[Rfam]
RNA: Small nucleolar RNA SNORD113/SNORD114 family
Organism: Capra hircus
RNA sequence: UGGAUCAGUGGUGACUAUCCGUGGCGUAUGUGUCAUGCAUGAUGAAUGCAUGUCUGGAACUGAGAUCCAA
Numbered sequence: 001u002g003g004a005u006c007a008g009u010g011g012u013g014a015c016u017a018u019c020c021g022u023g024g025c026g027u028a029u030g031u032g033u034c035a036u037g038c039a040u041g042a043u044g045a046a047u048g049c050a051u052g053u054c055u056g057g058a059a060c061u062g063a064g065a066u067c068c069a070a
Stems, first nucleotide, its partner, number of pairs: 002068005